[Rfam]
RNA sequence: GUAAUAUGAUGACAUCAUGCGUGUCAUUUGAACAUCACUGGUGGAUAUGGUGUGCAUGUCCUUGCAAGCGUUCUGUUUGCUUGGAUUCUGCCGCUGUGCCUACCAGGGUGUGAAUGAUUGUUGUAAAGUCUGAUUAC
Numbered sequence: 001g002u003a004a005u006a007u008g009a010u011g012a013c014a015u016c017a018u019g020c021g022u023g024u025c026a027u028u029u030g031a032a033c034a035u036c037a038c039u040g041g042u043g044g045a046u047a048u049g050g051u052g053u054g055c056a057u058g059u060c061c062u063u064g065c066a067a068g069c070g071u072u073c074u075g076u077u078u079g080c081u082u083g084g085a086u087u088c089u090g091c092c093g094c095u096g097u098g099c100c101u102a103c104c105a106g107g108g109u110g111u112g113a114a115u116g117a118u119u120g121u122u123g124u125a126a127a128g129u130c131u132g133a134u135u136a137c
Stems, first nucleotide, its partner, number of pairs: 001137004044100001046098007